Group II catalytic intron D1-D4-6: a 219-nucleotide sequence from Desulfobacteraceae bacterium SEEP-SAG9. The match comes from Rfam's covariance-model search (174 bits). About the family: Group II introns are found in rRNA, tRNA and mRNA of organelles in fungi, plants and protists, and also in mRNA in bacteria.
[Rfam]
RNA sequence: AAAGUCCCGUCCGGCUAAAGCUUAGCGAGCGGGCCGGGAGCGAGUCUUGCGAGCGCCAUGGCAACAGGGCGUUCGAAGCGUAGACAGCAGUCGUGCGGGGUGUGCUAUUGAGCCACGAAAUACGCUAAUCGUGGAGGCCGAGACCGUCCCACGAGUCGAAGGCAGCAUAGUCAUUGUCGUUAUCGCGAGACAAUGCAGCUCCACCGGGGUCUAAGAACA
Numbered sequence: 001a002a003a004g005u006c007c008c009g010u011c012c013g014g015c016u017a018a019a020g021c022u023u024a025g026c027g028a029g030c031g032g033g034c035c036g037g038g039a040g041c042g043a044g045u046c047u048u049g050c051g052a053g054c055g056c057c058a059u060g061g062c063a064a065c066a067g068g069g070c071g072u073u074c075g076a077a078g079c080g081u082a083g084a085c086a087g088c089a090g091u092c093g094u095g096c097g098g099g100g101u102g103u104g105c106u107a108u109u110g111a112g113c114c115a116c117g118a119a120a121u122a123c124g125c126u127a128a129u130c131g132u133g134g135a136g137g138c139c140g141a142g143a144c145c146g147u148c149c150c151a152c153g154a155g156u157c158g159a160a161g162g163c164a165g166c167a168u169a170g171u172c173a174u175u176g177u178c179g180u181u182a183u184c185g186c187g188a189g190a191c192a193a194u195g196c197a198g199c200u201c202c203a204c205c206g207g208g209g210u211c212u213a214a215g216a217a218c219a
Stems, first nucleotide, its partner, number of pairs: 012036005020030003023188001025186002040088002044085004048080002050075008059066002109213001110211001112210003116206002131204006137163003142157003168198001170196001172195007